[Rfam]
RNA: MIR6274 microRNA precursor family
Organism: Prunus yedoensis
RNA sequence: GGAUAACACUAUUUUGCUAUUCCUGGCCAAUAACACAAUGAUACGUGGAAAAGUUAUCUCAUGUGUCAUUGCGUCAUUGACCGGGAAUAACAAAAAGUGUUAUUC
Numbered sequence: 001g002g003a004u005a006a007c008a009c010u011a012u013u014u015u016g017c018u019a020u021u022c023c024u025g026g027c028c029a030a031u032a033a034c035a036c037a038a039u040g041a042u043a044c045g046u047g048g049a050a051a052a053g054u055u056a057u058c059u060c061a062u063g064u065g066u067c068a069u070u071g072c073g074u075c076a077u078u079g080a081c082c083g084g085g086a087a088u089a090a091c092a093a094a095a096a097g098u099g100u101u102a103u104u105c
Stems, first nucleotide, its partner, number of pairs: 002104004012095005018089003022085005028079004033074002036071013050057001